[Rfam]
RNA sequence: UACUACCAAACCCUAUCUCCACCUCCACGUGGUGCCCGCUGGGAGCUCCUUCUUAACGAAAAGCUGCAGAGGGAGGAGG
Numbered sequence: 001u002a003c004u005a006c007c008a009a010a011c012c013c014u015a016u017c018u019c020c021a022c023c024u025c026c027a028c029g030u031g032g033u034g035c036c037c038g039c040u041g042g043g044a045g046c047u048c049c050u051u052c053u054u055a056a057c058g059a060a061a062a063g064c065u066g067c068a069g070a071g072g073g074a075g076g077a078g079g
Stems, first nucleotide, its partner, number of pairs: 012079003016075001018073003021033003045067002049063003053059001
RNA: drz-agam-1 ribozyme
Organism: Hermetia illucens